[Rfam]
Background:
This 65-nucleotide sequence from Arenibacter nanhaiticus belongs to the Rfam family "Fluoride riboswitch aptamer (crcB RNA motif)". Taxonomically the source falls in Arenibacter (Bacteria, Pseudomonadati, Flavobacteriia, Flavobacteriales).

RNA sequence: GCUACAAUUGGCAAUGAUGUCUGCCUUAAACCGUUCCUAAUGGAGCUAAUGACUUCUACUUUUAA
Numbered sequence: 001g002c003u004a005c006a007a008u009u010g011g012c013a014a015u016g017a018u019g020u021c022u023g024c025c026u027u028a029a030a031c032c033g034u035u036c037c038u039a040a041u042g043g044a045g046c047u048a049a050u051g052a053c054u055u056c057u058a059c060u061u062u063u064a065a
Stems, first nucleotide, its partner, number of pairs: 010025004016056002019053003033046004
Pairs were carried over by alignment from the consensus structure, which is taken from published work. It scores 48 bits against the family's covariance model.